[Rfam]
RNA sequence: CAACCUGUACCGAGAGGUGCGGCUGAACCGGCAGGAGUCAGCAGACGCCAUAGUACUCCCUUUUAAGAUGUCAAAGGGGGGAAGGGC
Numbered sequence: 001c002a003a004c005c006u007g008u009a010c011c012g013a014g015a016g017g018u019g020c021g022g023c024u025g026a027a028c029c030g031g032c033a034g035g036a037g038u039c040a041g042c043a044g045a046c047g048c049c050a051u052a053g054u055a056c057u058c059c060c061u062u063u064u065a066a067g068a069u070g071u072c073a074a075a076g077g078g079g080g081g082a083a084g085g086g087c
Base pairs, nucleotide, nucleotide: 001025002024005022006021007020008019009018010017011016037046038045039044047087048086049085056080057079058078059077060076061075062074063073

About this RNA:
The family of this 87-nucleotide RNA sequence from Ammonifex degensii is "Group II catalytic intron D1-D4-1". The match comes from Rfam's covariance-model search (74 bits). A reference for the family is Bonen and Vogel (2001), "The ins and outs of group II introns", Trends Genet. Lineage of the source: Bacteria > Bacillati > Clostridia > Thermoanaerobacterales > Ammonifex degensii. Rfam describes the family as follows. Group II introns are found in rRNA, tRNA and mRNA of organelles in fungi, plants and protists, and also in mRNA in bacteria.